Shown here is a 156-nucleotide sequence from Kitasatospora griseola, a member of the family "c-di-AMP riboswitch aptamer (ydaO/yuaA leader)". The match comes from Rfam's covariance-model search (61 bits).
RNA sequence: CCUGUGGGGGUGCUGUCGAACGGAGCCGGGGAACCACGUUCCCCCGGGGUGAAUCGGCGCCGGGCCGGCCGCGACAGCGGUCGGUGAAGCGCUGUAGGGCAUCUCUUCCGGCCCGAACCCGUCAGCUCACCCGGUAGGCGGUGUGAGGAAGAAGGA
Numbered sequence: 001c002c003u004g005u006g007g008g009g010g011u012g013c014u015g016u017c018g019a020a021c022g023g024a025g026c027c028g029g030g031g032a033a034c035c036a037c038g039u040u041c042c043c044c045c046g047g048g049g050u051g052a053a054u055c056g057g058c059g060c061c062g063g064g065c066c067g068g069c070c071g072c073g074a075c076a077g078c079g080g081u082c083g084g085u086g087a088a089g090c091g092c093u094g095u096a097g098g099g100c101a102u103c104u105c106u107u108c109c110g111g112c113c114c115g116a117a118c119c120c121g122u123c124a125g126c127u128c129a130c131c132c133g134g135u136a137g138g139c140g141g142u143g144u145g146a147g148g149a150a151g152a153a154g155g156a
Base pairs, nucleotide, nucleotide: 001023002022025135026134027133028132029131030130035046047120048119049118055094056093057092058091059090060089097114098113099112100111